[Rfam]
RNA sequence: CUCUGUGGAUAUGAGUAUGUCAGGGAAGAAGGAG
Numbered sequence: 001c002u003c004u005g006u007g008g009a010u011a012u013g014a015g016u017a018u019g020u021c022a023g024g025g026a027a028g029a030a031g032g033a034g
Stems, first nucleotide, its partner, number of pairs: 001025005009020003

Shown here is a 34-nucleotide RNA sequence, a member of the family "L31-Firmicutes ribosomal protein leader". It is annotated as a cis-regulatory leader. For this family Rfam cites "Discovery of 20 novel ribosomal leader candidates in bacteria and archaea" (Eckert and Weinberg, BMC Microbiol, 2020). Clan: Ribosomal Protein L31 Leader clan. The family's consensus secondary structure is taken from published work.